Rfam assigns this 71-nucleotide sequence from Cyprinodon variegatus to the family "mir-2985 microRNA precursor family". Rfam's curators write: RNAs can be post-transcriptional modified, in micro RNAs (miRNA) editing of pre-mRNA is a common process. Pairs were carried over by alignment from the consensus structure, which was predicted with RNAalifold. Its family is annotated with RISC complex and miRNA-mediated post-transcriptional gene silencing in the Gene Ontology.

RNA sequence: AGCAUUAGGGUGGGUGGGAUAAGAUAACAAUCUCCUCCAUGUUGCUAUAGUAUUCCACCUACCCUGAUGUU
Dot-bracket structure: ..(((((.(((((((((.(((..(((.((((.(.....).)))).)))..))).))))))))).)))))..